About this RNA:
The record is a 77-nucleotide RNA sequence from Hippoglossus hippoglossus, which matches "mir-182 microRNA precursor family" in Rfam. Gene Ontology terms of the family: miRNA-mediated post-transcriptional gene silencing and RISC complex. Taxonomically the source falls in Hippoglossus (Eukaryota, Teleostomi, Actinopteri, Euacanthomorphacea). The literature on the family includes a 2009 paper in Mol Reprod Dev by Tesfaye et al., "Identification and expression profiling of microRNAs during bovine oocyte maturation using heterologous approach".

[Rfam]
RNA sequence: GGUGGUGUUUGGCAAUGGUAGAACUCACACUGGUGAGGUAGAUGGAUCCGGUGGUUCUAGACUUGCCAACUACUGCC
Numbered sequence: 001g002g003u004g005g006u007g008u009u010u011g012g013c014a015a016u017g018g019u020a021g022a023a024c025u026c027a028c029a030c031u032g033g034u035g036a037g038g039u040a041g042a043u044g045g046a047u048c049c050g051g052u053g054g055u056u057c058u059a060g061a062c063u064u065g066c067c068a069a070c071u072a073c074u075g076c077c
Stems, first nucleotide, its partner, number of pairs: 002076005009069007019059006028053006
Clan: mir-182 clan.